RNA sequence: UCAAUACAUAGUGACUGACGACAUAAAUGGAAAUAACCAUAUGGGAGCUGUGUAUAUGUAUAGCCGGUCGUCUGGGCAGAAGGG
Numbered sequence: 001u002c003a004a005u006a007c008a009u010a011g012u013g014a015c016u017g018a019c020g021a022c023a024u025a026a027a028u029g030g031a032a033a034u035a036a037c038c039a040u041a042u043g044g045g046a047g048c049u050g051u052g053u054a055u056a057u058g059u060a061u062a063g064c065c066g067g068u069c070g071u072c073u074g075g076g077c078a079g080a081a082g083g084g
Stems, first nucleotide, its partner, number of pairs: 004055009015044002017072005027040004061079001063077003
Dot-bracket structure: ...(((((((((..(([[[[[.....((((......))))..))..))))))))).....(.(((..]]]]]..))).).....

Description:
ZMP/ZTP riboswitch aptamer (pfl RNA motif): an 84-nucleotide sequence from Niallia circulans. Taxonomically the source falls in Niallia (Bacteria, Bacilli, Caryophanales, Bacillaceae).